[Rfam]
RNA: ZMP/ZTP riboswitch aptamer (pfl RNA motif)
Organism: Sphingomonas sp. OV641
RNA sequence: GGCGGGCCGUGUGACUGGCGCAAAUGCGGAGCACCGCAGGGGAGCACGGCCUUGCUGCCGCGCGCCUGGGCAUGUCAC
Numbered sequence: 001g002g003c004g005g006g007c008c009g010u011g012u013g014a015c016u017g018g019c020g021c022a023a024a025u026g027c028g029g030a031g032c033a034c035c036g037c038a039g040g041g042g043a044g045c046a047c048g049g050c051c052u053u054g055c056u057g058c059c060g061c062g063c064g065c066c067u068g069g070g071c072a073u074g075u076c077a078c
Base pairs, nucleotide, nucleotide: 004052005051006050007049008048009047010046011045012044015041016040017066018065019064020063021062026037027036028035029034056072057071058070059069